[Rfam]
RNA sequence: CGGAUACUUAGUUUCUUCCAGUGUCUCCUCUUUGUGGUGACAACUGUACUGAAGUAUCCCAGAGAAACAAAGAAGCCAUCUGUUCAUUCCUGGAUAGUUAACAGGAUUGGAUCGUUCCACUUCUGACAUGU
Numbered sequence: 001c002g003g004a005u006a007c008u009u010a011g012u013u014u015c016u017u018c019c020a021g022u023g024u025c026u027c028c029u030c031u032u033u034g035u036g037g038u039g040a041c042a043a044c045u046g047u048a049c050u051g052a053a054g055u056a057u058c059c060c061a062g063a064g065a066a067a068c069a070a071a072g073a074a075g076c077c078a079u080c081u082g083u084u085c086a087u088u089c090c091u092g093g094a095u096a097g098u099u100a101a102c103a104g105g106a107u108u109g110g111a112u113c114g115u116u117c118c119a120c121u122u123c124u125g126a127c128a129u130g131u
Stems, first nucleotide, its partner, number of pairs: 002059008011050001020045003024040002027037002071124005089105004
Background: Rfam assigns this 131-nucleotide sequence from Varanus komodoensis to the family "Small Cajal body specific RNA 24". Gene Ontology terms of the family: nucleolus, Cajal body and RNA processing. The family is grouped with related families in Rfam's "SCARNA3 clan". On this family, see Darzacq et al., EMBO J 2002: "Cajal body-specific small nuclear RNAs: a novel class of 2'-O-methylation and pseudouridylation guide RNAs". Taxonomically the source falls in Varanus (Eukaryota, Gnathostomata, Sarcopterygii, Anguimorpha). scaRNAs are a specific class of small nuclear RNAs which localise to the Cajal bodies and guide the modification of RNA polymerase II transcribed spliceosomal RNAs U1, U2, U4, U5 and U12. ACA12 belongs to the H/ACA box class of guide RNAs as it has the predicted hairpin-hinge-hairpin-tail structure,the conserved H/ACA-box motifs and is found associated with GAR1. The base pairs follow the family's consensus structure, which was predicted with RNAfold.